[Rfam]
RNA sequence: CUUCCAGUGCAGGUGGGGAUUAGUAGCAAUGCUGUGUACCUGGCAGUAUUGCACUUGUCCCGGCCUGUGUAGGAACG
Dot-bracket structure: ...((...((((((.(((((.(((.(((((((((.........)))))))))))).))))).))))))...))....

Annotation
This 77-nucleotide RNA from Channa argus belongs to the Rfam family "mir-92 microRNA precursor family". Rfam links the family to the GO terms RISC complex and miRNA-mediated post-transcriptional gene silencing. This family represents the microRNA precursor mir-92. Human miR-92 has two predicted hairpin precursor sequences: mir-92-1 on chromosome 13 and mir-92-2 on chromosome X. miR-92 has also been cloned from mouse embryonic stem cells. The mature sequence is excised from the 3' arm of the hairpin. The match comes from Rfam's covariance-model search (72 bits). Its Rfam clan is "mir-92 microRNA precursor clan". The family has 23 seed sequences and 1,347 matches in Rfam 15.1. On this family, see Houbaviy et al., Dev Cell 2003: "Embryonic stem cell-specific MicroRNAs".